[Rfam]
Nucleotides: 089
Base pairs, nucleotide, nucleotide: 006084007083008082010080011079012078013077020033021032022031023030035069036068037067038065039064042063043062044061048057049056
Number, partner (000 for none) and nucleotide at each position: 001000a002000a003000g004000c005000c006084c007083u008082g009000c010080g011079u012078g013077g014000g015000a016000g017000a018000g019000c020033g021032c022031g023030g024000a025000g026000c027000c028000g029000u030023c031022c032021g033020c034000c035069g036068c037067c038065g039064a040000a041000g042063g043062a044061g045000c046000a047000a048057c049056c050000c051000g052000c053000c054000c055000c056049g057048g058000a059000a060000a061044c062043u063042c064039u065038c066000a067037g068036g069035c070000a071000a072000a073000u074000g075000g076000a077013c078012c079011g080010c081000a082008c083007a084006g085000g086000g087000a088000a089000a
This 89-nucleotide RNA sequence from Elstera cyanobacteriorum belongs to the Rfam family "Glycine riboswitch aptamer". It scores 67 bits against the family's covariance model. The base pairs follow the family's consensus structure. Rfam links the family to the GO term glycine biosynthetic process.